This 79-nucleotide RNA from Microvirga aerophila belongs to the Rfam family "chrB-a RNA". A search with the family's covariance model found it, with a score of 70 bits. The family's RNA type in Rfam is cis-regulatory element. NCBI's taxonomy places the organism under Bacteria, Alphaproteobacteria, Hyphomicrobiales, Methylobacteriaceae, Microvirga.
[Rfam]
Nucleotides: 079
Base pairs, nucleotide, nucleotide: 005024006023007022008021009020010019047073048072049071050070051069052068
Number, partner (000 for none) and nucleotide at each position: 001000c002000a003000u004000a005024u006023g007022g008021g009020g010019a011000c012000a013000g014000c015000g016000a017000u018000c019010u020009c021008c022007c023006u024005a025000c026000g027000a028000g029000g030000c031000g032000a033000c034000a035000u036000g037000c038000c039000c040000a041000a042000g043000c044000a045000u046000c047073g048072c049071a050070u051069c052068c053000g054000c055000u056000c057000u058000a059000c060000a061000a062000c063000c064000a065000u066000a067000c068052g069051g070050a071049u072048g073047c074000a075000c076000c077000a078000u079000g